RNA sequence: AUCACCUAGGAUCUUGUUAAUAUGCACAUUUUUAUUCAGCAUUUCUAGGAUGGAAAUUCUGCAUUUCUAACAAGAUCUCAGGUGAUGCCUU
Numbered sequence: 001a002u003c004a005c006c007u008a009g010g011a012u013c014u015u016g017u018u019a020a021u022a023u024g025c026a027c028a029u030u031u032u033u034a035u036u037c038a039g040c041a042u043u044u045c046u047a048g049g050a051u052g053g054a055a056a057u058u059c060u061g062c063a064u065u066u067c068u069a070a071c072a073a074g075a076u077c078u079c080a081g082g083u084g085a086u087g088c089c090u091u
Stems, first nucleotide, its partner, number of pairs: 003084003009077002013074007020066001022064001024062003028058001030056003

About this RNA: The record is a 91-nucleotide sequence from Canis lupus, which matches "mir-544 microRNA precursor family" in Rfam. Taxonomically the source falls in Canis lupus (Eukaryota, Dipnotetrapodomorpha, Amniota, Eutheria). On this family, see Chiang et al., Genes Dev 2010: "Mammalian microRNAs: experimental evaluation of novel and previously annotated genes". The family's consensus secondary structure was predicted with RNAalifold. The match comes from Rfam's covariance-model search (69 bits).